[Rfam]
RNA: transfer-messenger RNA
Nucleotides: 379
Base pairs, nucleotide, nucleotide: 001375002374003373004372005371006370007369020348021347022346023345024344025343026342027341033336034335035334036333038332039331040330041329044323045322046321047320048319049067050066051065052064053063054082055081056080057079058078059077060076114136115135116134117133118132119131120130137196138195139194140193141192142191145162146161147160148159151210152209153208154207155206156205157204213241214240215239216238217237219235220234221233224257225256226255227254228253260295261294262293263292264291265290267288268287269286271284272283273282275315276314277313279310280309281308352368353367354366355365356364
Number, partner (000 for none) and nucleotide at each position: 001375g002374g003373g004372g005371c006370u007369g008000c009000c010000c011000u012000g013000g014000u015000u016000u017000c018000g019000a020348c021347g022346u023345g024344g025343g026342u027341u028000c029000g030000g031000a032000a033336u034335c035334g036333g037000u038332g039331u040330g041329g042000u043000g044323c045322a046321u047320g048319u049067c050066g051065a052064g053063c054082u055081u056080g057079a058078g059077u060076g061000g062000c063053g064052c065051u066050c067049g068000u069000a070000a071000a072000u073000c074000u075000g076060c077059a078058u079057u080056c081055a082054a083000c084000a085000a086000a087000c088000c089000a090000a091000c092000u093000g094000c095000a096000a097000a098000c099000g100000a101000c102000g103000a104000a105000c106000g107000u108000u109000u110000c111000g112000c113000a114136c115135u116134c117133g118132c119131c120130g121000c122000u123000u124000a125000a126000a127000c128000a129000c130120c131119g132118g133117u134116g135115a136114g137196c138195c139194u140193u141192g142191c143000a144000a145162c146161a147160g148159c149000a150000c151210g152209c153208u154207g155206a156205c157204g158000g159148g160147c161146u162145g163000g164000g165000c166000a167000a168000g169000g170000g171000g172000g173000c174000c175000g176000c177000a178000a179000g180000g181000c182000c183000u184000c185000c186000c187000g188000g189000c190000u191142g192141c193140a194139a195138g196137g197000u198000u199000a200000u201000u202000c203000a204157c205156g206155u207154c208153a209152g210151c211000u212000g213241g214240c215239c216238u217237c218000c219235u220234g221233c222000c223000g224257g225256g226255u227254a228253c229000c230000u231000u232000g233221g234220c235219a236000u237217g238216g239215g240214g241213c242000g243000a244000g245000a246000u247000c248000c249000a250000a251000g252000g253228g254227u255226g256225c257224u258000g259000g260295c261294c262293u263292u264291c265290c266000u267288u268287g269286c270000a271284g272283c273282g274000u275315g276314c277313g278000a279310c280309u281308g282273c283272g284271c285000g286269g287268c288267g289000u290265g291264g292263a293262a294261g295260g296000u297000g298000a299000g300000a301000u302000c303000c304000a305000a306000a307000a308281c309280a310279g311000a312000c313277c314276g315275c316000u317000a318000a319048a320047c321046a322045u323044g324000u325000a326000g327000a328000u329041c330040u331039g332038c333036c334035c335034g336033a337000a338000g339000a340000a341027g342026g343025c344024u345023u346022g347021c348020g349000g350000a351000c352368g353367c354366g355365g356364g357000u358000u359000c360000a361000a362000u363000u364356c365355c366354c367353g368352c369007c370006a371005g372004c373003u374002c375001c376000a377000c378000c379000a